[Rfam]
RNA sequence: AUGAUCAUUGUGGGAGAGCGCAAAGCUUAGCCACCGAAGGAGCAAGUUCCAAAAACAAACCCUUGGAACCAAUCUCUCAGGUAUAUGUACCACAAUGAGACG
Numbered sequence: 001a002u003g004a005u006c007a008u009u010g011u012g013g014g015a016g017a018g019c020g021c022a023a024a025g026c027u028u029a030g031c032c033a034c035c036g037a038a039g040g041a042g043c044a045a046g047u048u049c050c051a052a053a054a055a056c057a058a059a060c061c062c063u064u065g066g067a068a069c070c071a072a073u074c075u076c077u078c079a080g081g082u083a084u085a086u087g088u089a090c091c092a093c094a095a096u097g098a099g100a101c102g
Stems, first nucleotide, its partner, number of pairs: 006097008020031002023028001033082003036078002040076003046069007
Rfam assigns this 102-nucleotide RNA sequence from Alteribacillus bidgolensis to the family "Glycine riboswitch aptamer". From the family's description: This family represents the bacterial glycine riboswitch. NCBI's taxonomy places the organism under Bacteria, Bacillati, Bacilli, Bacillaceae, Alteribacillus.